Rfam assigns this 74-nucleotide sequence from Castor canadensis to the family "Small nucleolar RNA SNORD113/SNORD114 family". It is annotated as a C/D-box small nucleolar RNA. Gene Ontology terms of the family: RNA processing and nucleolus. Rfam 15.1 lists 5,721 matches to the family in 142 species. The family is grouped with related families in Rfam's "SNORD74 clan". The literature on the family includes a 2002 paper in Hum Mol Genet by Cavaille et al., "Identification of tandemly-repeated C/D snoRNA genes at the imprinted human 14q32 domain reminiscent of those at the Prader-Willi/Angelman syndrome region".
[Rfam]
RNA sequence: UGGACCAGUGAUGAGAUUGGAGGGUGUCUGAAUCAAAAAUCUUGAUUAAAGCCACCUGGAACUCUGAGGUCCGU
Numbered sequence: 001u002g003g004a005c006c007a008g009u010g011a012u013g014a015g016a017u018u019g020g021a022g023g024g025u026g027u028c029u030g031a032a033u034c035a036a037a038a039a040u041c042u043u044g045a046u047u048a049a050a051g052c053c054a055c056c057u058g059g060a061a062c063u064c065u066g067a068g069g070u071c072c073g074u
Stems, first nucleotide, its partner, number of pairs: 002072005